[Rfam]
RNA sequence: AGGUGAGGGUGAACUGGCAGUAACAUCUGUCACCCCAUUGAUCACCAGGCUUGAUUUGGCUGAUCUGGCUGGCUAGGUGGGCGUCCACUUCCUCCCUCACCACUCCAUGUGAGGCCCUCUUGAAGCUGUGUGCUUGGUCAAAACUUCCAAAACUAGAGAAGUGCCGUUCUUCAGUCAAGGGUAUAUUAUAGCUACUCUUCCAUGGUAAGACCUCCAAACAAGCUCAAGGCCCAUUUGUAGGAGAAAGUAGGGUGGUCAAGCUUCUAAGACUCCAGACACAUUCAAAUGAGGCAUUGCAUGUGGCAGUCUGCCUUUCUUU
Numbered sequence: 001a002g003g004u005g006a007g008g009g010u011g012a013a014c015u016g017g018c019a020g021u022a023a024c025a026u027c028u029g030u031c032a033c034c035c036c037a038u039u040g041a042u043c044a045c046c047a048g049g050c051u052u053g054a055u056u057u058g059g060c061u062g063a064u065c066u067g068g069c070u071g072g073c074u075a076g077g078u079g080g081g082c083g084u085c086c087a088c089u090u091c092c093u094c095c096c097u098c099a100c101c102a103c104u105c106c107a108u109g110u111g112a113g114g115c116c117c118u119c120u121u122g123a124a125g126c127u128g129u130g131u132g133c134u135u136g137g138u139c140a141a142a143a144c145u146u147c148c149a150a151a152a153c154u155a156g157a158g159a160a161g162u163g164c165c166g167u168u169c170u171u172c173a174g175u176c177a178a179g180g181g182u183a184u185a186u187u188a189u190a191g192c193u194a195c196u197c198u199u200c201c202a203u204g205g206u207a208a209g210a211c212c213u214c215c216a217a218a219c220a221a222g223c224u225c226a227a228g229g230c231c232c233a234u235u236u237g238u239a240g241g242a243g244a245a246a247g248u249a250g251g252g253u254g255g256u257c258a259a260g261c262u263u264c265u266a267a268g269a270c271u272c273c274a275g276a277c278a279c280a281u282u283c284a285a286a287u288g289a290g291g292c293a294u295u296g297c298a299u300g301u302g303g304c305a306g307u308c309u310g311c312c313u314u315u316c317u318u319u
Base pairs, nucleotide, nucleotide: 001104003100004099005098006097007096008095009094011091012090016088023084024083026081027080028079029078030077031076033072034071035068036067037066040065041064042063043062045059046058114162115161117158118157119156120137121136122135123134125133126132191261192260193259197255198254200252201251203249204248212243213242214241215240218238219237220236221235222234284319285318286317288314289313290312291311292310293307294306295305296304297303
Shown here is a 319-nucleotide RNA sequence from Crocodylus porosus, a member of the family "7SK RNA". It is annotated as a non-coding RNA gene.